A member of the RNA family "mir-202 microRNA precursor family" from Aotus nancymaae, 76 nucleotides long.
RNA sequence: CCGUUCCGUUUUCCUAUGCAUAUACUUCUUUGAGGAUCUGGCCUGAAGAGGUAUAGGGCAUGGGAAGACGGGGCGG
Dot-bracket structure: .........((((((((((.(((.((((((((...........)))))))).)))..)))))))))).........